[Rfam]
RNA sequence: ACCCUGCUGACGGAUUGAACGGCAGCCGAUAGCGAGAAUCGGACGGGGU
Numbered sequence: 001a002c003c004c005u006g007c008u009g010a011c012g013g014a015u016u017g018a019a020c021g022g023c024a025g026c027c028g029a030u031a032g033c034g035a036g037a038a039u040c041g042g043a044c045g046g047g048g049u
Base pairs, nucleotide, nucleotide: 001049002048003047004046005045006044011021012020017033023036026042027041028040029039030038

Description:
This 49-nucleotide RNA sequence belongs to the Rfam family "DUF2693-FD RNA". From the family's description: DUF2693-FD RNA is a non-coding RNA (ncRNA) recognised in Bacteroides by a bioinformatic analisis by Zasha Weinberg. No recognised genes. The base pairs follow the family's consensus structure, which is taken from published work. By type it is a small RNA.